About this RNA
The family of this 47-nucleotide RNA sequence from Ottowia oryzae is "Guanidine-II riboswitch aptamer (mini-ykkC)".
[Rfam]
RNA sequence: CUGUCGGGACGACCCGGCAGCGCCUCUACCCCCCGGGGACGACCCCA
Numbered sequence: 001c002u003g004u005c006g007g008g009a010c011g012a013c014c015c016g017g018c019a020g021c022g023c024c025u026c027u028a029c030c031c032c033c034c035g036g037g038g039a040c041g042a043c044c045c046c047a
Base pairs, nucleotide, nucleotide: 001020002019003018004017005016006015007014008013035046036045037044038043
Rfam describes the family as follows. Simpler in structure and has fewer highly conserved nucleotide positions than the ykkC-yxkD leader. Despite this each of its two stem-loop structures directly bind free guanidine. Therefore, mini-ykkC RNA motif represents a distinct class of guanidine-sensing RNAs. Its crystal structure was also determined. The organism belongs to Ottowia, within Bacteria. Its family is annotated with regulation of gene expression in the Gene Ontology. The family's consensus secondary structure is taken from published work.